[Rfam]
RNA sequence: AUGUAUCCUGCAAGUUUGCUGUCUGAGCUACAUAACGAGUGUUUAAUCACUCAUAUUUGCUCAGGGGAAAAUCCCCGAACAUGAAGUAGAAACUACUAAUCCAUAAUAUGGAUUUAUCAUUCUCGUAGGCCUAAAAUGAACCGAUAGUUAGCCAAGAAAAGAUCUUAAAAAGUCUUUGAGCUAAUUAGGUGAGUUUGAUAUCGUUGAAAGAAAAGUCAUGCAAACAAACCAUUUGAAUAAAGUGGUUGUACUCGAGGGGGUUUAUGAGCAGGGUACA
Numbered sequence: 001a002u003g004u005a006u007c008c009u010g011c012a013a014g015u016u017u018g019c020u021g022u023c024u025g026a027g028c029u030a031c032a033u034a035a036c037g038a039g040u041g042u043u044u045a046a047u048c049a050c051u052c053a054u055a056u057u058u059g060c061u062c063a064g065g066g067g068a069a070a071a072u073c074c075c076c077g078a079a080c081a082u083g084a085a086g087u088a089g090a091a092a093c094u095a096c097u098a099a100u101c102c103a104u105a106a107u108a109u110g111g112a113u114u115u116a117u118c119a120u121u122c123u124c125g126u127a128g129g130c131c132u133a134a135a136a137u138g139a140a141c142c143g144a145u146a147g148u149u150a151g152c153c154a155a156g157a158a159a160a161g162a163u164c165u166u167a168a169a170a171a172g173u174c175u176u177u178g179a180g181c182u183a184a185u186u187a188g189g190u191g192a193g194u195u196u197g198a199u200a201u202c203g204u205u206g207a208a209a210g211a212a213a214a215g216u217c218a219u220g221c222a223a224a225c226a227a228a229c230c231a232u233u234u235g236a237a238u239a240a241a242g243u244g245g246u247u248g249u250a251c252u253c254g255a256g257g258g259g260g261u262u263u264a265u266g267a268g269c270a271g272g273g274u275a276c277a
Stems, first nucleotide, its partner, number of pairs: 002277010014225006022065007037052005069263003073260004085097004098114006117197001122193005140186001149183004169173001227247006
A member of the RNA family "RNase MRP" from Didymodactylos carnosus, 277 nucleotides long. Pairs were carried over by alignment from the consensus structure, which is taken from published work. It is annotated as a ribozyme. Rfam links the family to the GO terms ribonuclease MRP activity, rRNA processing and ribonuclease MRP complex. A search with the family's covariance model found it, with a score of 115 bits.